[Rfam]
RNA sequence: UGGAGGAUGAUGAGAAAAUCAGACGGAUUCCCUGUGAGGUUAUACAGUGAUCACUCAAUCAGCUACUUCUGACUCCU
Numbered sequence: 001u002g003g004a005g006g007a008u009g010a011u012g013a014g015a016a017a018a019u020c021a022g023a024c025g026g027a028u029u030c031c032c033u034g035u036g037a038g039g040u041u042a043u044a045c046a047g048u049g050a051u052c053a054c055u056c057a058a059u060c061a062g063c064u065a066c067u068u069c070u071g072a073c074u075c076c077u
Base pairs, nucleotide, nucleotide: 002076003075004074005073